RNA sequence: CAGAAUGAUAGAGGUGCAGGUUUCAAGAGUAUUUCCGCAGAAAAGGCCGGGCGGCCGCCGGAAAGAAAGGGGAAGCUGCCGAAGGGAUGGACACCUGCCCGGGUGUCUGUUUCUGGGACGCCGCAUAAGAUGCGUCGUACUGUCACUGGAAGUGGAGCGCUAUCAUCUUG
Numbered sequence: 001c002a003g004a005a006u007g008a009u010a011g012a013g014g015u016g017c018a019g020g021u022u023u024c025a026a027g028a029g030u031a032u033u034u035c036c037g038c039a040g041a042a043a044a045g046g047c048c049g050g051g052c053g054g055c056c057g058c059c060g061g062a063a064a065g066a067a068a069g070g071g072g073a074a075g076c077u078g079c080c081g082a083a084g085g086g087a088u089g090g091a092c093a094c095c096u097g098c099c100c101g102g103g104u105g106u107c108u109g110u111u112u113c114u115g116g117g118a119c120g121c122c123g124c125a126u127a128a129g130a131u132g133c134g135u136c137g138u139a140c141u142g143u144c145a146c147u148g149g150a151a152g153u154g155g156a157g158c159g160c161u162a163u164c165a166u167c168u169u170g
Base pairs, nucleotide, nucleotide: 006165007164008163009162010161011160016079017078018077019076021074022073023072024071032064033063034062035061036060037059083114084113085112086111087110088109089108090107091106092105093104094103115141116140118138119137120136122134123133124132125131143155144154145153146152147151
Dot-bracket structure: .....((((((....((((.((((.......((((((.....................))))))......)))).))))...((((((((((((........))))))))))))((.(((.((((.....)))).))).)).(((((...)))))....)))))).....
The family of this 170-nucleotide sequence from Blautia pseudococcoides is "Lysine riboswitch aptamer". A search with the family's covariance model found it, with a score of 102 bits. Lineage of the source: Bacteria > Bacillati > Bacillota > Lachnospirales > Blautia.